Record summary
mir-31 microRNA precursor family: an 80-nucleotide RNA sequence from Lynx pardinus. Rfam 15.1 lists 1,181 matches to the family in 783 species. The organism belongs to Lynx, within Eukaryota. Pairs were carried over by alignment from the consensus structure, which was predicted with RNAalifold.
RNA sequence: GACAAGAGAGAUGGCAAUAUGUUGGCAUAGCAGGUUCUCAGGUCAACAGCUAUGCCAGCAUCUUGCCUCCUCUCCAGUUC
Numbered sequence: 001g002a003c004a005a006g007a008g009a010g011a012u013g014g015c016a017a018u019a020u021g022u023u024g025g026c027a028u029a030g031c032a033g034g035u036u037c038u039c040a041g042g043u044c045a046a047c048a049g050c051u052a053u054g055c056c057a058g059c060a061u062c063u064u065g066c067c068u069c070c071u072c073u074c075c076a077g078u079u080c
Stems, first nucleotide, its partner, number of pairs: 006074005013067005019061003023057009